RNA sequence: GGUUGCAAGUUUGAGGCCAUAGCAGACGUGCUCACAGUACAGUCUGUCAGAUUCCAAAGAAUCUGCAAAUUUUCCU
Numbered sequence: 001g002g003u004u005g006c007a008a009g010u011u012u013g014a015g016g017c018c019a020u021a022g023c024a025g026a027c028g029u030g031c032u033c034a035c036a037g038u039a040c041a042g043u044c045u046g047u048c049a050g051a052u053u054c055c056a057a058a059g060a061a062u063c064u065g066c067a068a069a070u071u072u073u074c075c076u
Stems, first nucleotide, its partner, number of pairs: 015044003021076002024073003028040003048065007